[Rfam]
RNA sequence: AUGUAUGUGGUUCGUAACCAUCCCACACAAAAAAACUAGGAGAUU
Numbered sequence: 001a002u003g004u005a006u007g008u009g010g011u012u013c014g015u016a017a018c019c020a021u022c023c024c025a026c027a028c029a030a031a032a033a034a035a036c037u038a039g040g041a042g043a044u045u
Base pairs, nucleotide, nucleotide: 006027007026008025009024010023015038016037
This 45-nucleotide RNA from Weissella halotolerans belongs to the Rfam family "PreQ1 (pre queuosine) riboswitch aptamer". About the family: This family is a bacterial riboswitch that binds to the metabolite preQ1, an intermediate in the biosynthesis of the modified nucleoside queuosine from GTP. One example of this riboswitch is located in the leader of the Bacillus subtilis ykvJKLM (queCDEF) operon which encodes four genes necessary for queuosine production. The pairing is the family consensus, mapped onto this sequence. For this family Rfam cites "Cocrystal structure of a class I preQ1 riboswitch reveals a pseudoknot recognizing an essential hypermodified nucleobase" (Klein et al., Nat Struct Mol Biol, 2009). Rfam links the family to the GO term queuosine biosynthetic process.